This 80-nucleotide RNA sequence from Flavobacterium sp. A45 belongs to the Rfam family "Flavo-1 RNA".
RNA sequence: GCUUAGCCCCGAUAGCAGUGAAAAUCCUUUUUAUUUUUUCUUUAAAAAUAAAAAGAUUGAAACGAAUAGCGGGAGAAAUG
Number, nucleotide and partner (000 for none) at each position: 001g000002c000003u000004u000005a000006g000007c000008c000009c072010c071011g070012a000013u068014a067015g000016c000017a000018g063019u062020g000021a000022a000023a058024a057025u056026c055027c000028u000029u053030u052031u051032u050033a049034u048035u047036u046037u045038u044039u000040c000041u000042u000043u000044a038045a037046a036047a035048a034049u033050a032051a031052a030053a029054a000055g026056a025057u024058u023059g000060a000061a000062a019063c018064g000065a000066a000067u014068a013069g000070c011071g010072g009073g000074a000075g000076a000077a000078a000079u000080g000